[Rfam]
Rfam assigns this 45-nucleotide RNA sequence from Eubacterium callanderi to the family "PreQ1 (pre queuosine) riboswitch aptamer". The pairing is the family consensus, mapped onto this sequence. The literature on the family includes a 2004 paper in J Biol Chem by Reader et al., "Identification of four genes necessary for biosynthesis of the modified nucleoside queuosine". Its family is annotated with queuosine biosynthetic process in the Gene Ontology. This family is a bacterial riboswitch that binds to the metabolite preQ1, an intermediate in the biosynthesis of the modified nucleoside queuosine from GTP. One example of this riboswitch is located in the leader of the Bacillus subtilis ykvJKLM (queCDEF) operon which encodes four genes necessary for queuosine production. PreQ1 binding to the riboswitch aptamer is thought to induce premature transcription termination within the leader to down-regulate expression of these genes.
RNA sequence: AACGGAGAGGUUCGUAACCAUCCCUCUAUAAAAAACUAAGGAAAG
Numbered sequence: 001a002a003c004g005g006a007g008a009g010g011u012u013c014g015u016a017a018c019c020a021u022c023c024c025u026c027u028a029u030a031a032a033a034a035a036c037u038a039a040g041g042a043a044a045g
Base pairs, nucleotide, nucleotide: 006027007026008025009024010023015038016037
Dot-bracket structure: .....(((((....[[......))))).........]].......